[Rfam]
RNA sequence: UUGACCGUGAACGGCCAGGCGUCGCCGCGCGCGACCAGGCCCUCGUCGCCGAAGUGGUCGCCGUCGACCAGCACGCCGAGGAUCAGCGGGUCGUCGUACUUGCCGACGCCGAGCUUGUGGGCCUUGCCGUGCGCGAGCAGCACCACCUGAUCGGCGGGCGCGCCGGCCGCGACGAUGACCUCGCCGGCCGCGACCUCGCGCUGGACGAAGCGGUCGGCCAGCGCGGAGAGCACCGCGUCGUCCGCGAAUCCGCGCAGCAGCGGCAGCUCGGUCAGCUCGCGCGGGAUCACCUGCACGCGCGGGCCGACGCUGGUAAAGCCGACCCGGCCGUCGCCGACCGCGUAGGUCAGGCGACGAUUGACGCGGUAGGUCCCGCCGGGCACGUCGACCCACGGGAGCAGGCGCAGCAGCCAGCGCGGGCUGAUGCCCGCCAUCUGCGGCGCCGACUUGGUGGUCGUCGCCAGGUUGCGAGCCGCCGCGGUGGCGAGGCUCGUCUGCGCGUGGUCUCUCGG
Numbered sequence: 001u002u003g004a005c006c007g008u009g010a011a012c013g014g015c016c017a018g019g020c021g022u023c024g025c026c027g028c029g030c031g032c033g034a035c036c037a038g039g040c041c042c043u044c045g046u047c048g049c050c051g052a053a054g055u056g057g058u059c060g061c062c063g064u065c066g067a068c069c070a071g072c073a074c075g076c077c078g079a080g081g082a083u084c085a086g087c088g089g090g091u092c093g094u095c096g097u098a099c100u101u102g103c104c105g106a107c108g109c110c111g112a113g114c115u116u117g118u119g120g121g122c123c124u125u126g127c128c129g130u131g132c133g134c135g136a137g138c139a140g141c142a143c144c145a146c147c148u149g150a151u152c153g154g155c156g157g158g159c160g161c162g163c164c165g166g167c168c169g170c171g172a173c174g175a176u177g178a179c180c181u182c183g184c185c186g187g188c189c190g191c192g193a194c195c196u197c198g199c200g201c202u203g204g205a206c207g208a209a210g211c212g213g214u215c216g217g218c219c220a221g222c223g224c225g226g227a228g229a230g231c232a233c234c235g236c237g238u239c240g241u242c243c244g245c246g247a248a249u250c251c252g253c254g255c256a257g258c259a260g261c262g263g264c265a266g267c268u269c270g271g272u273c274a275g276c277u278c279g280c281g282c283g284g285g286a287u288c289a290c291c292u293g294c295a296c297g298c299g300c301g302g303g304c305c306g307a308c309g310c311u312g313g314u315a316a317a318g319c320c321g322a323c324c325c326g327g328c329c330g331u332c333g334c335c336g337a338c339c340g341c342g343u344a345g346g347u348c349a350g351g352c353g354a355c356g357a358u359u360g361a362c363g364c365g366g367u368a369g370g371u372c373c374c375g376c377c378g379g380g381c382a383c384g385u386c387g388a389c390c391c392a393c394g395g396g397a398g399c400a401g402g403c404g405c406a407g408c409a410g411c412c413a414g415c416g417c418g419g420g421c422u423g424a425u426g427c428c429c430g431c432c433a434u435c436u437g438c439g440g441c442g443c444c445g446a447c448u449u450g451g452u453g454g455u456c457g458u459c460g461c462c463a464g465g466u467u468g469c470g471a472g473c474c475g476c477c478g479c480g481g482u483g484g485c486g487a488g489g490c491u492c493g494u495c496u497g498c499g500c501g502u503g504g505u506c507u508c509u510c511g512g
Base pairs, nucleotide, nucleotide: 007389008388011385012384016380018325019324022322023321024320026318035313036312037311038310042306045305047303049302050301051300054233055232058229059228061226062225063224064223065111066110068108075103077102078101079100080099082097083096085094117222118221120219122217123216127212130209131206134203135202137199138198142196148192149191153189154188155187157185158184159183161177164174165173234297235296237294240290241289245285249283251281252280253279254278256277257276258275261270262269329342330341331340352378353377355375356374360372361371362370394428395427397425399423400422401421403418404417405416407415437476438475439474440473443470446467447465448464449463450462451461452460477511478510480506481505482504484502485501486500488498
RNA: Saccharopolyspora sRNA 350